[Rfam]
RNA sequence: UGCGGGUAGCUUACGAUUAAGGAGCAACUGUCUCUUAUAUAGAUCAUGUAUUAAUUU
Dot-bracket structure: .................(((((.((....)).)))))....................
Numbered sequence: 001u002g003c004g005g006g007u008a009g010c011u012u013a014c015g016a017u018u019a020a021g022g023a024g025c026a027a028c029u030g031u032c033u034c035u036u037a038u039a040u041a042g043a044u045c046a047u048g049u050a051u052u053a054a055u056u057u
Stems, first nucleotide, its partner, number of pairs: 018037005024031002
Source information: Rfam assigns this 57-nucleotide sequence from Olea europaea to the family "Plastid-rps18 3UTR RNA". A reference for the family is Richter et al. (2023), "Retrograde signaling in plants: A critical review focusing on the GUN pathway and beyond", Plant Commun. Plastid rps18 is a non-coding RNA (ncRNA) present in plastids. It was identified as a short stem-loop motif in the 3 prime untranslate region (3UTR) of rps18 gene. The base pairs follow the family's consensus structure, which was predicted with LocARNA. It is annotated as a cis-regulatory element. Rfam 15.1 lists 1,462 matches to the family in 409 species.